[Rfam]
About this RNA
The family of this 89-nucleotide sequence from Lactuca saligna is "Small nucleolar RNA snoR14". The literature on the family includes a 2001 paper in RNA by Brown et al., "Multiple snoRNA gene clusters from Arabidopsis". The family is grouped with related families in Rfam's "SNORD110 clan". It scores 75 bits against the family's covariance model. The base pairs follow the family's consensus structure.
RNA sequence: GCGAAGUGACGAUAUAAUUCAAUGCUCUGUCAAUCCUCUGACAAAUUUUGAUUGAUGUUAAACUUUGAAUCUCGACAGGUUCCGAUCGC
Numbered sequence: 001g002c003g004a005a006g007u008g009a010c011g012a013u014a015u016a017a018u019u020c021a022a023u024g025c026u027c028u029g030u031c032a033a034u035c036c037u038c039u040g041a042c043a044a045a046u047u048u049u050g051a052u053u054g055a056u057g058u059u060a061a062a063c064u065u066u067g068a069a070u071c072u073c074g075a076c077a078g079g080u081u082c083c084g085a086u087c088g089c
Base pairs, nucleotide, nucleotide: 001089002088003087004086